[Rfam]
RNA sequence: AACUUUCUGAAUCCGUGUUGAGAUUUCGUCAGACACCAACCUAUUAGGGUCUAUCAGACUUCCACGAUAAAUGAAGUU
Numbered sequence: 001a002a003c004u005u006u007c008u009g010a011a012u013c014c015g016u017g018u019u020g021a022g023a024u025u026u027c028g029u030c031a032g033a034c035a036c037c038a039a040c041c042u043a044u045u046a047g048g049g050u051c052u053a054u055c056a057g058a059c060u061u062c063c064a065c066g067a068u069a070a071a072u073g074a075a076g077u078u
Stems, first nucleotide, its partner, number of pairs: 002077005008071001011068003016064002020061003024058003028054002
Rfam assigns this 78-nucleotide RNA from Schistosoma mattheei to the family "mir-3492 microRNA precursor family". Gene Ontology terms of the family: RISC complex and miRNA-mediated post-transcriptional gene silencing.